RNA sequence: GGAGCAUAAUGAUGAUUAAAUAAUUCAUCCGAUCUUUGAUGAAAGGAAUACCAACCUCCUACUCAUUCUGA
Numbered sequence: 001g002g003a004g005c006a007u008a009a010u011g012a013u014g015a016u017u018a019a020a021u022a023a024u025u026c027a028u029c030c031g032a033u034c035u036u037u038g039a040u041g042a043a044a045g046g047a048a049u050a051c052c053a054a055c056c057u058c059c060u061a062c063u064c065a066u067u068c069u070g071a
Base pairs, nucleotide, nucleotide: 006066007065009063025047026046029041

Rfam assigns this 71-nucleotide RNA sequence from Capsicum baccatum to the family "Small nucleolar RNA Z105". A search with the family's covariance model found it, with a score of 56 bits. Rfam links the family to the GO terms RNA processing and nucleolus. The family has 11 seed sequences and 621 matches in Rfam 15.1. Lineage of the source: Eukaryota > Streptophyta > lamiids > Solanaceae > Capsicum. The family's consensus secondary structure was predicted with CMfinder.